RNA sequence: UUCUUCUUUGAUACGAAUGCCUUCUAUUCACUGCACCAUUUAUAUCAAUGAAUGAAGUGGAGGGGAAAAGAAUGCUAGAGUAAGUUAUCGAAGAACUUCCUCAUACUGAGUUUACUUAUUUAUUUUUUUUAAAAAUUAUAAAAUAGCAUUCUUGGAUUCUGGUUGUUCGAUACAUUU
Dot-bracket structure: ..................((.((.......((.((.(((((........)))))...)).))........)).))...........(((((...(.(........(((.(..(.((.(.......((......))........))).)..).)))......).)..)))))......